[Rfam]
Nucleotides: 131
Stems, first nucleotide, its partner, number of pairs: 003058006015045006022037002025035002069125008080115002086110005091104005
Number, partner (000 for none) and nucleotide at each position: 001000c002000u003058u004057c005056c006055c007054a008053u009000u010000u011000a012000u013000u014000u015045g016044c017043u018042g019041c020040c021000a022037u023036a024000g025035u026034c027000u028000u029000a030000c031000a032000a033000u034026g035025a036023u037022a038000u039000g040020g041019g042018c043017a044016g045015u046000u047000a048000u049000a050000c051000g052000c053008a054007u055006g056005g057004g058003a059000u060000a061000a062000a063000a064000u065000a066000a067000u068000a069125c070124u071123g072122g073121u074120c075119c076118a077000u078000c079000a080115u081114a082000a083000a084000u085000u086110g087109a088108g089107g090106u091104g092103a093102a094101g095100u096000a097000a098000c099000c100095a101094u102093u103092u104091u105000c106090a107089u108088c109087u110086c111000u112000u113000g114081u115080a116000c117000a118076u119075g120074g121073a122072c123071u124070a125069g126000a127000c128000a129000u130000u131000g
A member of the RNA family "Small nucleolar RNA SNORA20" from Microcebus murinus, 131 nucleotides long. The family's RNA type in Rfam is H/ACA-box small nucleolar RNA. From the family's description: ACA20 is a member of the H/ACA class of snoRNA that guide the sites of modification of uridines to pseudouridines.